Notes:
The family of this 71-nucleotide RNA from Geotrypetes seraphini is "Small nucleolar RNA SNORD2". The source organism's lineage runs through Eukaryota, Teleostomi, Amphibia, Dermophiidae and Geotrypetes. The family's RNA type in Rfam is C/D-box small nucleolar RNA. A reference for the family is Zhou et al. (2004), "Identification of a novel box C/D snoRNA from mouse nucleolar cDNA library", Gene.
[Rfam]
RNA sequence: AAGUGAGAUGAUGGUAUACCAUCUUUCGGGACUGACUGAAAUGGAGAGAACUUCUAUUUUGCUGAUCACUU
Number, nucleotide and partner (000 for none) at each position: 001a071002a070003g069004u068005g067006a066007g000008a000009u000010g000011a000012u000013g000014g000015u000016a000017u000018a000019c000020c000021a000022u000023c000024u000025u000026u000027c000028g000029g000030g000031a000032c000033u000034g000035a000036c000037u000038g000039a000040a000041a000042u000043g000044g000045a000046g000047a000048g000049a000050a000051c000052u000053u000054c000055u000056a000057u000058u000059u000060u000061g000062c000063u000064g000065a000066u006067c005068a004069c003070u002071u001